RNA sequence: UGUGAAUACCCUCCUUGGGUGUUUCCUCCCUAGACUUAACCGCGCGAACAGCGCGGUUUUUUUUGUCGAUC
Numbered sequence: 001u002g003u004g005a006a007u008a009c010c011c012u013c014c015u016u017g018g019g020u021g022u023u024u025c026c027u028c029c030c031u032a033g034a035c036u037u038a039a040c041c042g043c044g045c046g047a048a049c050a051g052c053g054c055g056g057u058u059u060u061u062u063u064u065g066u067c068g069a070u071c
Stems, first nucleotide, its partner, number of pairs: 008020004040056006
Overview:
The record is a 71-nucleotide sequence from Martelella endophytica, which matches "Makes More Granules Regulator RNA (mmgR)" in Rfam. Clan: suhB sRNA clan. Pairs were carried over by alignment from the consensus structure. Rfam classes the family as a small RNA. SuhB later renamed mmgR (makes more granules regulator) was a putative non-coding RNA found multiple times in the Agrobacterium tumefaciens genome and related alpha-proteobacteria. Other non-coding RNAs uncovered in the same analysis include: speF, ybhL, metA, and serC.Several studies inSinorhizobium meliloti showed that suhB element is indeed a non-coding RNA:firstly it was detected on Northern blot and called Sm8RNA, secondly in an RNAseq study referred to as SmelC689.The mutant phenotype's (strain lacking the small RNA) cytoplasm contains higher content of polyhydroxybutyrate (PBH)storage granules than wild type strain. The sRNA is required to limit the PBH intracellular accumulation when the nitrogen-fixing Sinorhizobium meliloti is under condition of surplus carbon in relation to nitrogen. It scores 60 bits against the family's covariance model.